Shown here is a 110-nucleotide sequence from Pseudoalteromonas tunicata, a member of the family "Alpha operon ribosome binding site". Gene Ontology term of the family: ribosome binding. Lineage of the source: Bacteria > Pseudomonadota > Gammaproteobacteria > Pseudoalteromonas > Pseudoalteromonas tunicata. The family's RNA type in Rfam is cis-regulatory element. On this family, see Schlax et al., J Biol Chem 2001: "Translational repression of the Escherichia coli alpha operon mRNA: importance of an mRNA conformational switch and a ternary entrapment complex". The base pairs follow the family's consensus structure, which is taken from published work. The bacterial alpha operon ribosome binding site is surrounded by this complex pseudoknotted structure. Translation of the mRNA produces 4 ribosomal protein products, one of which (S4) acts as a translational repressor by binding to the nested pseudoknot region. The mechanism of repression is thought to involve a conformational switch in the pseudoknot region and ribosome entrapment.
RNA sequence: AAGUUUGAUUAUUGGUUGAGUAUCCUAACGGGCUUUUCAACAAAAUAUAGUCAAAUUCUUUUAUAGGAGAUGUGUUAGUGGCCCGUAUAGCUGGCAUUAACGUCCCUGAU
Numbered sequence: 001a002a003g004u005u006u007g008a009u010u011a012u013u014g015g016u017u018g019a020g021u022a023u024c025c026u027a028a029c030g031g032g033c034u035u036u037u038c039a040a041c042a043a044a045a046u047a048u049a050g051u052c053a054a055a056u057u058c059u060u061u062u063a064u065a066g067g068a069g070a071u072g073u074g075u076u077a078g079u080g081g082c083c084c085g086u087a088u089a090g091c092u093g094g095c096a097u098u099a100a101c102g103u104c105c106c107u108g109a110u
Base pairs, nucleotide, nucleotide: 004055005054006053007052008051009050010049011048012047024094025093029085030084031083032082037109038108039107